[Rfam]
RNA sequence: GGGCUAUGACGAUCACAUGUGAUAAGGUCUCGUUCGUCGUAAUGGUGAUGAAUAAUCCCCUUGCCGACCACACUGUUAUAUCACCACCCAUAAACCGAGUCC
Numbered sequence: 001g002g003g004c005u006a007u008g009a010c011g012a013u014c015a016c017a018u019g020u021g022a023u024a025a026g027g028u029c030u031c032g033u034u035c036g037u038c039g040u041a042a043u044g045g046u047g048a049u050g051a052a053u054a055a056u057c058c059c060c061u062u063g064c065c066g067a068c069c070a071c072a073c074u075g076u077u078a079u080a081u082c083a084c085c086a087c088c089c090a091u092a093a094a095c096c097g098a099g100u101c102c
Stems, first nucleotide, its partner, number of pairs: 001102004047062002
Small nucleolar RNA Z43: a 102-nucleotide RNA sequence from Cynara cardunculus. The family's consensus secondary structure was predicted with PFOLD. The literature on the family includes a 2003 paper in Nucleic Acids Res by Chen et al., "The high diversity of snoRNAs in plants: identification and comparative study of 120 snoRNA genes from Oryza sativa". A search with the family's covariance model found it, with a score of 81 bits. Taxonomically the source falls in Cynara cardunculus subsp. cardunculus (Eukaryota, Streptophytina, Pentapetalae, Asterales). The family's RNA type in Rfam is C/D-box small nucleolar RNA.